[Rfam]
RNA: Small nucleolar RNA SNORA11
Organism: Pan troglodytes
RNA sequence: GGGGUGCGCUCAGAGCAGAGGGCCUUAAGAAUGGCUCCUCUGUUUACAACACACCCAACAGGAAUCUGGGCUUACUCCUCACAGGUGGCAUGAUACUUUGGCCUUCCUGUGACAUCAUGCCCUAUACAU
Numbered sequence: 001g002g003g004g005u006g007c008g009c010u011c012a013g014a015g016c017a018g019a020g021g022g023c024c025u026u027a028a029g030a031a032u033g034g035c036u037c038c039u040c041u042g043u044u045u046a047c048a049a050c051a052c053a054c055c056c057a058a059c060a061g062g063a064a065u066c067u068g069g070g071c072u073u074a075c076u077c078c079u080c081a082c083a084g085g086u087g088g089c090a091u092g093a094u095a096c097u098u099u100g101g102c103c104u105u106c107c108u109g110u111g112a113c114a115u116c117a118u119g120c121c122c123u124a125u126a127c128a129u
Base pairs, nucleotide, nucleotide: 002056003055004054005053006052008050013045014044015043016042017041018040019039020038021037022035023034024033069122070121072119082111083110085104087102089100090099093097